[Rfam]
RNA sequence: UGUUACGCACAAGCGCCCGGACUGAAGGGGUUCCUCGCAUUGCGAGGCCCGUGUUCAGUUGACGCGGAGGGGGUUGGCGAGUCAUUCGGCGGAUACCUCCCGGCGUGGGACCGCGCCGCAAGGGAAGCUCGAAAAUCCCCGGGUGACCGAGGAAACAAGAGCCAACAGGUCAA
Numbered sequence: 001u002g003u004u005a006c007g008c009a010c011a012a013g014c015g016c017c018c019g020g021a022c023u024g025a026a027g028g029g030g031u032u033c034c035u036c037g038c039a040u041u042g043c044g045a046g047g048c049c050c051g052u053g054u055u056c057a058g059u060u061g062a063c064g065c066g067g068a069g070g071g072g073g074u075u076g077g078c079g080a081g082u083c084a085u086u087c088g089g090c091g092g093a094u095a096c097c098u099c100c101c102g103g104c105g106u107g108g109g110a111c112c113g114c115g116c117c118g119c120a121a122g123g124g125a126a127g128c129u130c131g132a133a134a135a136u137c138c139c140c141g142g143g144u145g146a147c148c149g150a151g152g153a154a155a156c157a158a159g160a161g162c163c164a165a166c167a168g169g170u171c172a173a
Base pairs, nucleotide, nucleotide: 020060021059022058023057024056025055026054069100070099071098072097073096078088079087080086101118102117103116104115105114106113123166127162128161129160136153137152138151140149141148142147
RNA: glmS glucosamine-6-phosphate activated ribozyme aptamer